[Rfam]
Source information
A member of the RNA family "Bacterial large subunit ribosomal RNA" from Prosthecobacter gellanilyticus, 336 nucleotides of a longer RNA.
RNA sequence: GAGUGAAACCUCGUUAAGGAACUCUGCAAUCUAGUCCCGUAACUUCGGAAGAAGGGAUGCCCAAAUUUAUUUGGGUCGCAGUGAAAGGGAGCAACCGACUGUUUAUCAAAAACACAGCAUUGUGCCAAGACGAAAGUCCAAGUAUACGAUGUGACACGUGACCAAUGCGGAAAGAUUAAGGCAAGGGGUUAGCCGCAAGGCGAAGCUCUGAACCCAAGUCCCCGUGAAUGUCGGCCGUAACUAUAACGGUCCUAAGGUAGCGAAAUUCCUUGUCGGGUAAGUUCCGACCUGCACGAAUCGUGUAACGAGUUGCUCGCUGUCUCAACGAGGGGCUCA
Numbered sequence: 001g002a003g004u005g006a007a008a009c010c011u012c013g014u015u016a017a018g019g020a021a022c023u024c025u026g027c028a029a030u031c032u033a034g035u036c037c038c039g040u041a042a043c044u045u046c047g048g049a050a051g052a053a054g055g056g057a058u059g060c061c062c063a064a065a066u067u068u069a070u071u072u073g074g075g076u077c078g079c080a081g082u083g084a085a086a087g088g089g090a091g092c093a094a095c096c097g098a099c100u101g102u103u104u105a106u107c108a109a110a111a112a113c114a115c116a117g118c119a120u121u122g123u124g125c126c127a128a129g130a131c132g133a134a135a136g137u138c139c140a141a142g143u144a145u146a147c148g149a150u151g152u153g154a155c156a157c158g159u160g161a162c163c164a165a166u167g168c169g170g171a172a173a174g175a176u177u178a179a180g181g182c183a184a185g186g187g188g189u190u191a192g193c194c195g196c197a198a199g200g201c202g203a204a205g206c207u208c209u210g211a212a213c214c215c216a217a218g219u220c221c222c223c224g225u226g227a228a229u230g231u232c233g234g235c236c237g238u239a240a241c242u243a244u245a246a247c248g249g250u251c252c253u254a255a256g257g258u259a260g261c262g263a264a265a266u267u268c269c270u271u272g273u274c275g276g277g278u279a280a281g282u283u284c285c286g287a288c289c290u291g292c293a294c295g296a297a298u299c300g301u302g303u304a305a306c307g308a309g310u311u312g313c314u315c316g317c318u319g320u321c322u323c324a325a326c327g328a329g330g331g332g333c334u335c336a
Base pairs, nucleotide, nucleotide: 001335002334003333009330010329011328012327013326014325015324017322018321019320034058035057036056037055038054043048059076060075061074062073063072064071065070077081089315090314091313092312093311094310095309096307097306100114101113102112117152118151119150120149121148122147123146124145125142129138130137131136155302156301157300158299160232161231162230165229166228167225168224169223170222174220175219176218180214181213185209186208187207188206189205192201193200233251234250235249236248237247238246252256262289272288273287274286275285276284277283

The source organism's lineage runs through Bacteria, Verrucomicrobiia, Verrucomicrobiales, Verrucomicrobiaceae and Prosthecobacter. The match comes from Rfam's covariance-model search (2706 bits).